This 115-nucleotide RNA sequence from Pseudooceanicola pacificus belongs to the Rfam family "Guanidine-I riboswitch aptamer". The family has 100 seed sequences and 1,509 matches in Rfam 15.1. Rfam describes the family as follows. This family represents a conserved RNA structure found upstream of the ykkC and yxkD genes in Bacillus subtilis and related genes in other bacteria. The function of this family is unclear although it has been suggested that it may function to switch on efflux pumps and detoxification systems in response to harmful environmental molecules. A search with the family's covariance model found it, with a score of 72 bits.
RNA sequence: GGGCAGGGCACUUAGGGUUCCGCCCGGCCGGUCACGGUCGGGGUCAGGUCCGAGAAGUUGCCACCGGCGCGGCAAAUUCCGCGCGGGCACACGGCGGGCCAAAAUCCCGGGAGAA
Numbered sequence: 001g002g003g004c005a006g007g008g009c010a011c012u013u014a015g016g017g018u019u020c021c022g023c024c025c026g027g028c029c030g031g032u033c034a035c036g037g038u039c040g041g042g043g044u045c046a047g048g049u050c051c052g053a054g055a056a057g058u059u060g061c062c063a064c065c066g067g068c069g070c071g072g073c074a075a076a077u078u079c080c081g082c083g084c085g086g087g088c089a090c091a092c093g094g095c096g097g098g099c100c101a102a103a104a105u106c107c108c109g110g111g112a113g114a115a
Stems, first nucleotide, its partner, number of pairs: 007062003010058003015051002020048002022045001023042006064087002067084006090110001092113001096108003